This 129-nucleotide RNA from Mesorhabditis belari belongs to the Rfam family "U4 spliceosomal RNA". The match comes from Rfam's covariance-model search (58 bits). U4 small nuclear RNA (U4 snRNA) is a component of the major U2-dependent spliceosome.
RNA sequence: AACUUUGCACAAAGGCAAUAAAGUCACCAAUGAGGCCUAGCCGAGGUGUGUUUAUUGCUUUAAAAAUGAUACCAAUUAUCCGUCGCUAUCCGCCCUGAAGUAUGGUUGCUCUGGAAGGCCCUCGGGGGC
Number, nucleotide and partner (000 for none) at each position: 001a000002a000003c000004u000005u000006u000007g000008c000009a000010c000011a000012a000013a000014g000015g000016c000017a000018a000019u000020a052021a051022a000023g049024u048025c000026a047027c046028c045029a000030a000031u000032g000033a000034g042035g041036c040037c000038u000039a000040g036041c035042c034043g000044a000045g028046g027047u026048g024049u023050g000051u021052u020053u000054a000055u000056u000057g000058c000059u000060u000061u000062a000063a000064a000065a000066a000067u000068g000069a000070u000071a000072c000073c000074a000075a000076u000077u000078a000079u000080c000081c000082g109083u000084c108085g106086c105087u104088a103089u102090c000091c100092g000093c000094c000095c000096u000097g000098a000099a000100g091101u000102a089103u088104g087105g086106u085107u000108g084109c082110u000111c000112u000113g000114g000115a000116a000117g000118g129119c128120c127121c126122u000123c000124g000125g000126g121127g120128g119129c118